[Rfam]
RNA: tRNA
RNA sequence: GUUUUCGUAGUGUAGUGGUUAUCACGUGUGCUUCACACGCACAAGGUCCCCGGUUCGAACCCGGGCGAAAACA
Numbered sequence: 001g002u003u004u005u006c007g008u009a010g011u012g013u014a015g016u017g018g019u020u021a022u023c024a025c026g027u028g029u030g031c032u033u034c035a036c037a038c039g040c041a042c043a044a045g046g047u048c049c050c051c052g053g054u055u056c057g058a059a060c061c062c063g064g065g066c067g068a069a070a071a072c073a
Stems, first nucleotide, its partner, number of pairs: 001072007010025003027043005049065005